[Rfam]
Description: The family of this 135-nucleotide RNA sequence from Ceuthmochares aereus is "Small nucleolar RNA SNORA84". Gene Ontology terms of the family: RNA processing and nucleolus. The family's consensus secondary structure was predicted with WAR. The family's RNA type in Rfam is H/ACA-box small nucleolar RNA.

RNA sequence: GCCCUGUGGUUGCUGGACACUGAUUUCUGCGUACAGUGCUUCAGUUGUUUGAAAUGGGCUAAAAGUAAUACUGUGAUUGAUGCAUGGAGUCUGUGGUACCUGAGCAGCCUCCAUAGCCCGGUCACAGGUACAGAC
Numbered sequence: 001g002c003c004c005u006g007u008g009g010u011u012g013c014u015g016g017a018c019a020c021u022g023a024u025u026u027c028u029g030c031g032u033a034c035a036g037u038g039c040u041u042c043a044g045u046u047g048u049u050u051g052a053a054a055u056g057g058g059c060u061a062a063a064a065g066u067a068a069u070a071c072u073g074u075g076a077u078u079g080a081u082g083c084a085u086g087g088a089g090u091c092u093g094u095g096g097u098a099c100c101u102g103a104g105c106a107g108c109c110u111c112c113a114u115a116g117c118c119c120g121g122u123c124a125c126a127g128g129u130a131c132a133g134a135c
Stems, first nucleotide, its partner, number of pairs: 001059004008049001010047001012045006019037004071127001073125006082117002084114004089109001091107004